[Rfam]
RNA sequence: CUGAGCGGCAGGACUUAGCCCACGAGUGAGCACUGUGUGUUCUUCAUGUUCACAGUGGUUAAGUUCUGCCGCCCAC
Numbered sequence: 001c002u003g004a005g006c007g008g009c010a011g012g013a014c015u016u017a018g019c020c021c022a023c024g025a026g027u028g029a030g031c032a033c034u035g036u037g038u039g040u041u042c043u044u045c046a047u048g049u050u051c052a053c054a055g056u057g058g059u060u061a062a063g064u065u066c067u068g069c070c071g072c073c074c075a076c
Stems, first nucleotide, its partner, number of pairs: 011066010026053007
The record is a 76-nucleotide sequence from Conger conger, which matches "mir-27 microRNA precursor family" in Rfam. The family has 82 seed sequences and 1,440 matches in Rfam 15.1. Its family is annotated with RISC complex and miRNA-mediated post-transcriptional gene silencing in the Gene Ontology. A search with the family's covariance model found it, with a score of 65 bits.